[Rfam]
RNA sequence: GCAGACCCCUCGUGCGGCGUUACCUCGUGAACCCCCCCAGGGCCGGAAGGCAGCAAGGGUAAGCGGGCUCUGGCGGGUGUGCGGGGGGUCCUCCUC
Numbered sequence: 001g002c003a004g005a006c007c008c009c010u011c012g013u014g015c016g017g018c019g020u021u022a023c024c025u026c027g028u029g030a031a032c033c034c035c036c037c038c039a040g041g042g043c044c045g046g047a048a049g050g051c052a053g054c055a056a057g058g059g060u061a062a063g064c065g066g067g068c069u070c071u072g073g074c075g076g077g078u079g080u081g082c083g084g085g086g087g088g089u090c091c092u093c094c095u096c
Stems, first nucleotide, its partner, number of pairs: 004090011015077001018075005024067005034059003042051003

Notes:
Rfam assigns this 96-nucleotide sequence from Parafrankia flexibilis to the family "Bacterial small signal recognition particle RNA". The family's RNA type in Rfam is non-coding RNA gene. The match comes from Rfam's covariance-model search (65 bits). A reference for the family is Rosenblad et al. (2003), "SRPDB: Signal Recognition Particle Database", Nucleic Acids Res.